[Rfam]
RNA sequence: GAACGUCUUCAGGGCGGGGUGAGAUUCCCCACCGGCGGUAGAUGCGCCAUCGGCGCAUGAGCCCGCGAGCGCUGGGGUUGGUGGGUCCCUCUCGAGAGCGCGUCUCUCCGCUUGCGGACUUCACGCCUGCCACAGGUCAGCAGAUCCGGUCCGAUGCCGGAGCCGACGGUUGGCGCAGCCUUGCCGCGCCAGAGAGUCCGGAUGAAAGAAGACGACC
Numbered sequence: 001g002a003a004c005g006u007c008u009u010c011a012g013g014g015c016g017g018g019g020u021g022a023g024a025u026u027c028c029c030c031a032c033c034g035g036c037g038g039u040a041g042a043u044g045c046g047c048c049a050u051c052g053g054c055g056c057a058u059g060a061g062c063c064c065g066c067g068a069g070c071g072c073u074g075g076g077g078u079u080g081g082u083g084g085g086u087c088c089c090u091c092u093c094g095a096g097a098g099c100g101c102g103u104c105u106c107u108c109c110g111c112u113u114g115c116g117g118a119c120u121u122c123a124c125g126c127c128u129g130c131c132a133c134a135g136g137u138c139a140g141c142a143g144a145u146c147c148g149g150u151c152c153g154a155u156g157c158c159g160g161a162g163c164c165g166a167c168g169g170u171u172g173g174c175g176c177a178g179c180c181u182u183g184c185c186g187c188g189c190c191a192g193a194g195a196g197u198c199c200g201g202a203u204g205a206a207a208g209a210a211g212a213c214g215a216c217c
Stems, first nucleotide, its partner, number of pairs: 004214007017029003033165002035066004061163002069141002145161005167200003
Dot-bracket structure: ...(((((((......(((.......)))...((((((......................[[))))..((.....................................................................))...(((((.......)))))]])).(((............................))).......)))))))...
RNA: FMN riboswitch aptamer (RFN element)